About this RNA
Selenocysteine insertion sequence 1: a 67-nucleotide RNA from Mohoua ochrocephala. Rfam's curators write: The incorporation of selenocysteine into a protein sequence is directed by an in-frame UGA codon (usually a stop codon) within the coding region of the mRNA. Selenoprotein mRNAs contain a conserved secondary structure in the 3' UTR that is required for the distinction of UGA stop from UGA selenocysteine. It is annotated as a cis-regulatory element.
Nucleotides: 067
Base pairs, nucleotide, nucleotide: 001067002066003065004064005063015050016049017048018047019046020045021044022043023042031036
Number, partner (000 for none) and nucleotide at each position: 001067c002066u003065u004064u005063a006000u007000u008000u009000a010000a011000u012000g013000a014000u015050a016049a017048g018047u019046a020045c021044a022043c023042u024000g025000u026000a027000a028000a029000u030000c031036c032000c033000u034000u035000g036031g037000c038000a039000a040000u041000g042023g043022g044021u045020g046019u047018a048017u049016u050015u051000u052000g053000a054000g055000u056000a057000a058000c059000u060000g061000u062000u063005u064004a065003a066002a067001g
The base pairs follow the family's consensus structure, which is taken from published work.